Background:
This 74-nucleotide RNA from Actinopolyspora mortivallis belongs to the Rfam family "6C RNA". The match comes from Rfam's covariance-model search (61 bits). The base pairs follow the family's consensus structure, which is taken from published work. A reference for the family is Weinberg et al. (2007), "Identification of 22 candidate structured RNAs in bacteria using the CMfinder comparative genomics pipeline", Nucleic Acids Res. Taxonomically the source falls in Actinopolyspora (Bacteria, Bacillati, Actinopolysporales, Actinopolysporaceae). The family's RNA type in Rfam is cis-regulatory element.
RNA sequence: AUAGUUCAGCCCGACCCCCCGGGGCUGAACCUCGGGUGGCCCCCGUCCCUCCCCCCUGGCGGGGGCCACUCUCG
Numbered sequence: 001a002u003a004g005u006u007c008a009g010c011c012c013g014a015c016c017c018c019c020c021g022g023g024g025c026u027g028a029a030c031c032u033c034g035g036g037u038g039g040c041c042c043c044c045g046u047c048c049c050u051c052c053c054c055c056c057u058g059g060c061g062g063g064g065g066c067c068a069c070u071c072u073c074g
Base pairs, nucleotide, nucleotide: 002034004030005029006028007027008026009025010024011023012022035070036069037068038067039066040065041064042063043062044061045060046059047058